[Rfam]
RNA sequence: GAGCCCUGGGUCAAUAAAAACUGAGAAGAUUGACUCAAGAUCAAA
Numbered sequence: 001g002a003g004c005c006c007u008g009g010g011u012c013a014a015u016a017a018a019a020a021c022u023g024a025g026a027a028g029a030u031u032g033a034c035u036c037a038a039g040a041u042c043a044a045a
Stems, first nucleotide, its partner, number of pairs: 005039001008036008
Dot-bracket structure: ....(..((((((((.............))))))))..)......